[Rfam]
RNA: MIR6152 microRNA precursor family
Organism: Nicotiana attenuata
RNA sequence: UAGACAGAUUAUUGUAUUCGACUGUAUUCAUGAUAUGUAUUUGUGAAUACAGUAAUGUAAAUAGCGCAAUUCAUGGUCUAUUCAACUGUUUUGAAAUGGAAAGUGAAUCAAUUAACAUAAUAGACUCCU
Dot-bracket structure: ..((....(((((((.((.((.((.((((((..((((.(.(.(..........................................).)).)....)))....)))))))).)))).)))))))..))..